[Rfam]
RNA: L31-Actinobacteria ribosomal protein leader
RNA sequence: CCGGUUCCGGUUCACGUCCAGUCCACGUGGCUGGGCGACCCGGCGGCC
Dot-bracket structure: ..(((.((((....(((((((((.....)))))))))..))))..)))
Numbered sequence: 001c002c003g004g005u006u007c008c009g010g011u012u013c014a015c016g017u018c019c020a021g022u023c024c025a026c027g028u029g030g031c032u033g034g035g036c037g038a039c040c041c042g043g044c045g046g047c048c
Stems, first nucleotide, its partner, number of pairs: 003048003007043004015037009